[Rfam]
RNA sequence: AUGGCAUUUAUGAUGUAGCUAGAUUAAAGCCUCAAGAUGUCUAGUUGCUGAUAUUGCCAU
Numbered sequence: 001a002u003g004g005c006a007u008u009u010a011u012g013a014u015g016u017a018g019c020u021a022g023a024u025u026a027a028a029g030c031c032u033c034a035a036g037a038u039g040u041c042u043a044g045u046u047g048c049u050g051a052u053a054u055u056g057c058c059a060u
Stems, first nucleotide, its partner, number of pairs: 001060005015048010031036001
Selenocysteine insertion sequence 1: a 60-nucleotide RNA from Python bivittatus. It is annotated as a cis-regulatory element. The source organism's lineage runs through Eukaryota, Metazoa, Sarcopterygii, Bifurcata and Python. From the family's description: The incorporation of selenocysteine into a protein sequence is directed by an in-frame UGA codon (usually a stop codon) within the coding region of the mRNA. Selenoprotein mRNAs contain a conserved secondary structure in the 3' UTR that is required for the distinction of UGA stop from UGA selenocysteine. The selenocysteine insertion sequence (SECIS) is around 60 nt in length and adopts a hairpin structure which is sufficiently well-defined and conserved to act as a computational screen for selenoprotein genes. A search with the family's covariance model found it, with a score of 37 bits. Pairs were carried over by alignment from the consensus structure, which is taken from published work.